[Rfam]
The record is a 62-nucleotide sequence, which matches "Streptococcus sRNA SpF59 (ldcC RNA)" in Rfam. The family's RNA type in Rfam is small RNA. Rfam's curators put it in the seed alignment.

RNA sequence: GAACCACUUUUCUGUACAUGCAGGAAAGUCAAGGCCAUACGGACAGCCGGGUUCACUGCCGA
Number, nucleotide and partner (000 for none) at each position: 001g054002a053003a052004c051005c050006a029007c028008u027009u026010u025011u024012c023013u022014g021015u020016a000017c000018a000019u000020g015021c014022a013023g012024g011025a010026a009027a008028g007029u006030c000031a000032a000033g000034g000035c000036c000037a000038u000039a000040c000041g000042g000043a000044c000045a000046g000047c000048c000049g000050g005051g004052u003053u002054c001055a000056c000057u000058g000059c000060c000061g000062a000